RNA: c-di-AMP riboswitch aptamer (ydaO/yuaA leader)
RNA sequence: AAUCAUACAAGGCCGAAGUUUAUACUAAAGCGCGGGGGAACCUAUGAACUUGGGGUGAAGCCACAAGCUGUGGCCGGGUGAUUGCUCUUUGACCCGAAUCCGUCAGCUAACCUCGCAGGCCCUACAAAGGAGAGGA
Numbered sequence: 001a002a003u004c005a006u007a008c009a010a011g012g013c014c015g016a017a018g019u020u021u022a023u024a025c026u027a028a029a030g031c032g033c034g035g036g037g038g039a040a041c042c043u044a045u046g047a048a049c050u051u052g053g054g055g056u057g058a059a060g061c062c063a064c065a066a067g068c069u070g071u072g073g074c075c076g077g078g079u080g081a082u083u084g085c086u087c088u089u090u091g092a093c094c095c096g097a098a099u100c101c102g103u104c105a106g107c108u109a110a111c112c113u114c115g116c117a118g119g120c121c122c123u124a125c126a127a128a129g130g131a132g133a134g135g136a
Stems, first nucleotide, its partner, number of pairs: 011121004018031003032116006042052001053101003061073004076095004
Dot-bracket structure: ..........((((...(((........)))((((((....(.........)(((.....((((.....))))..((((............))))...))).........)))))).))))...............